[Rfam]
RNA sequence: AAGUGGGACACCCCUCCCCAACGAGGGGCACCUAUCUGUAAGGGUAGAUUAA
Numbered sequence: 001a002a003g004u005g006g007g008a009c010a011c012c013c014c015u016c017c018c019c020a021a022c023g024a025g026g027g028g029c030a031c032c033u034a035u036c037u038g039u040a041a042g043g044g045u046a047g048a049u050u051a052a
Stems, first nucleotide, its partner, number of pairs: 011028006032047006
RNA: serC leader